[Rfam]
RNA: SAM riboswitch aptamer (S box leader)
RNA sequence: UUCUUAUCGAGAGCGGUGGAGGAACCUGGUCCUUUGAUCCCGCGGCAACCUGUUUAAAAACAAGGUGCUCAUUCCAGCAGACACUUUCUGUCUGAAAGAUAAGAG
Numbered sequence: 001u002u003c004u005u006a007u008c009g010a011g012a013g014c015g016g017u018g019g020a021g022g023a024a025c026c027u028g029g030u031c032c033u034u035u036g037a038u039c040c041c042g043c044g045g046c047a048a049c050c051u052g053u054u055u056a057a058a059a060a061c062a063a064g065g066u067g068c069u070c071a072u073u074c075c076a077g078c079a080g081a082c083a084c085u086u087u088c089u090g091u092c093u094g095a096a097a098g099a100u101a102a103g104a105g
Stems, first nucleotide, its partner, number of pairs: 001105008013043004021032003026077004044069004049065002051062004073097001078094006
Dot-bracket structure: ((((((((....((((....(((..[[[[))).......))))((((.((((((....)))).))))))...(]]]]((((((.....))))))..)))))))))